This 317-nucleotide RNA sequence from Donacobius atricapilla belongs to the Rfam family "7SK RNA".
A reference for the family is Blencowe (2002), "Transcription: surprising role for an elusive small nuclear RNA", Curr Biol.
The family has 45 seed sequences and 49,373 matches in Rfam 15.1.
Lineage of the source: Eukaryota > Euteleostomi > Neognathae > Passeriformes > Donacobius.
RNA sequence: GGAUAUGAGGGUAAUCUGGCUGUGAGAUCUGAUAUGUAUGGGUUGAUCUGACUGAUCUGGCUAGCUUAGGCAGGUGUUUGCUUUCUUCCUCAACAUUCCAUGUGUGUUCCUCCUGAUGUGUUCUUGGUUAAUGAGACAGCCUCCUCGACAGGCGUAGUAUUGUUCAUUGGUCGAGGGUGUGUAGGAGCUGGGCCCCCCUGCUGGAAACUCAAAGAAAGCUCCAGGUCCAUUUGUAGAGGAAUGUAGGGUAGUCAAACAUCCAAUACUGAAGACAUAUCUAAAUGAGAAGUUGCGUGCUGCAGUCUGCCAGUGGCUUU
Numbered sequence: 001g002g003a004u005a006u007g008a009g010g011g012u013a014a015u016c017u018g019g020c021u022g023u024g025a026g027a028u029c030u031g032a033u034a035u036g037u038a039u040g041g042g043u044u045g046a047u048c049u050g051a052c053u054g055a056u057c058u059g060g061c062u063a064g065c066u067u068a069g070g071c072a073g074g075u076g077u078u079u080g081c082u083u084u085c086u087u088c089c090u091c092a093a094c095a096u097u098c099c100a101u102g103u104g105u106g107u108u109c110c111u112c113c114u115g116a117u118g119u120g121u122u123c124u125u126g127g128u129u130a131a132u133g134a135g136a137c138a139g140c141c142u143c144c145u146c147g148a149c150a151g152g153c154g155u156a157g158u159a160u161u162g163u164u165c166a167u168u169g170g171u172c173g174a175g176g177g178u179g180u181g182u183a184g185g186a187g188c189u190g191g192g193c194c195c196c197c198c199u200g201c202u203g204g205a206a207a208c209u210c211a212a213a214g215a216a217a218g219c220u221c222c223a224g225g226u227c228c229a230u231u232u233g234u235a236g237a238g239g240a241a242u243g244u245a246g247g248g249u250a251g252u253c254a255a256a257c258a259u260c261c262a263a264u265a266c267u268g269a270a271g272a273c274a275u276a277u278c279u280a281a282a283u284g285a286g287a288a289g290u291u292g293c294g295u296g297c298u299g300c301a302g303u304c305u306g307c308c309a310g311u312g313g314c315u316u317u
Stems, first nucleotide, its partner, number of pairs: 001099003006092006013084002018081001024078002027075005033069001035063001037059002041057004045052001107157002109154001111152002113127004128148002134145002187257001189255001193251001196248006208239002214234001216232003280317003286308001289303005